[Rfam]
RNA sequence: AAAAAAGCAGGGGUGUGUUUAUCUGUGAGCACAUCUUUCGUCAAGUCUCAGGGAAAUUGACGGCAUCACUAUUGGGUGAACCCCCGUAGGUUUAUCCGACCAUGGACUGGUGGUUCAAUCCGUGAUGUGACAUGA
Numbered sequence: 001a002a003a004a005a006a007g008c009a010g011g012g013g014u015g016u017g018u019u020u021a022u023c024u025g026u027g028a029g030c031a032c033a034u035c036u037u038u039c040g041u042c043a044a045g046u047c048u049c050a051g052g053g054a055a056a057u058u059g060a061c062g063g064c065a066u067c068a069c070u071a072u073u074g075g076g077u078g079a080a081c082c083c084c085c086g087u088a089g090g091u092u093u094a095u096c097c098g099a100c101c102a103u104g105g106a107c108u109g110g111u112g113g114u115u116c117a118a119u120c121c122g123u124g125a126u127g128u129g130a131c132a133u134g135a
Base pairs, nucleotide, nucleotide: 005048007046011036012035014033015032016031017030064127065126066125067124068123069122077117078116079115080114081113082112
Dot-bracket structure: ....(.(...((.((((............)))).)).........).)...............((((((.......((((((.............................))))))....))))))........